[Rfam]
RNA sequence: UGGAUGGGUGCGGGCGACGCCAUACCCCGAACCUGGUCAGGGCCGGGAGGCAGCAGCCAUAAGGAGUCACUGGCGGGCGCCCGUUCCCAUCGAGCA
Numbered sequence: 001u002g003g004a005u006g007g008g009u010g011c012g013g014g015c016g017a018c019g020c021c022a023u024a025c026c027c028c029g030a031a032c033c034u035g036g037u038c039a040g041g042g043c044c045g046g047g048a049g050g051c052a053g054c055a056g057c058c059a060u061a062a063g064g065a066g067u068c069a070c071u072g073g074c075g076g077g078c079g080c081c082c083g084u085u086c087c088c089a090u091c092g093a094g095c096a
Stems, first nucleotide, its partner, number of pairs: 004090005010084005015077001018075005024067002027064002034059004042051003
Shown here is a 96-nucleotide RNA sequence from Coriobacteriales bacterium OH1046, a member of the family "Bacterial small signal recognition particle RNA". The match comes from Rfam's covariance-model search (61 bits). Rfam's curators write: The signal recognition particle (SRP) is a universally conserved ribonucleoprotein involved in the co-translational targeting of proteins to membranes. Taxonomically the source falls in Coriobacteriales (Bacteria, Bacillati, Actinomycetota, Coriobacteriia). Rfam links the family to the GO terms signal recognition particle, plasma membrane targeting and SRP-dependent cotranslational protein targeting to membrane, signal sequence recognition.